[Rfam]
RNA: c-di-GMP-I riboswitch aptamer
Organism: Effusibacillus lacus
RNA sequence: GGCCGACAACGGCAAACUUCGGGAAACCGGAGGACGCAAAACUACAGGGGCUACGGUAGGAAACUACGAAGCCAGCCAGUUGCCGAA
Number, nucleotide and partner (000 for none) at each position: 001g000002g000003c000004c000005g000006a000007c000008a000009a000010c000011g000012g037013c036014a000015a000016a000017c032018u031019u030020c029021g028022g027023g000024a000025a000026a000027c022028c021029g020030g019031a018032g017033g000034a000035c000036g013037c012038a000039a000040a081041a080042c079043u078044a000045c000046a000047g077048g076049g073050g072051c071052u000053a000054c000055g000056g067057u066058a065059g064060g000061a000062a000063a000064c059065u058066a057067c056068g000069a000070a000071g051072c050073c049074a000075g000076c048077c047078a043079g042080u041081u040082g000083c000084c000085g000086a000087a000